RNA sequence: CGAGCUCGGACGGGAGAGUGCCCCUCGGGGCACGCCGAAGGAGCAAUCCCUCCCCGGAAUCUCUCAGGCCCCAGGACCGUCCGAACGAG
Dot-bracket structure: .....((((((((.....((((......)))).(((((..(((...((.......))...))))).))).......)))))))).....
RNA: Glycine riboswitch aptamer
Organism: Aquihabitans sp. G128